[Rfam]
The family of this 118-nucleotide RNA from Cuscuta australis is "U5 spliceosomal RNA". Lineage of the source: Eukaryota > Viridiplantae > Embryophyta > Spermatophyta > Cuscuta sect. Cleistogrammica. The family's consensus secondary structure is taken from published work.

RNA sequence: AGCCACGCGAUAAGCACAUAGCGAACUAUUCUUUCGCCUUUUACUAAAGAAUACCGUGUGCUUGUCGCAAUCAGUGGCAUACGGUAAUUUUUGGAGGGUCUCUUCUUUUUGAAGAUCC
Numbered sequence: 001a002g003c004c005a006c007g008c009g010a011u012a013a014g015c016a017c018a019u020a021g022c023g024a025a026c027u028a029u030u031c032u033u034u035c036g037c038c039u040u041u042u043a044c045u046a047a048a049g050a051a052u053a054c055c056g057u058g059u060g061c062u063u064g065u066c067g068c069a070a071u072c073a074g075u076g077g078c079a080u081a082c083g084g085u086a087a088u089u090u091u092u093g094g095a096g097g098g099u100c101u102c103u104u105c106u107u108u109u110u111g112a113a114g115a116u117c118c
Base pairs, nucleotide, nucleotide: 003077004076005075006074008067009066010065011064012063013062014061015060016059017058018057027053028052029051030050031049032048033047034046097117098116099115100114101113
It is annotated as a spliceosomal small nuclear RNA. The match comes from Rfam's covariance-model search (97 bits).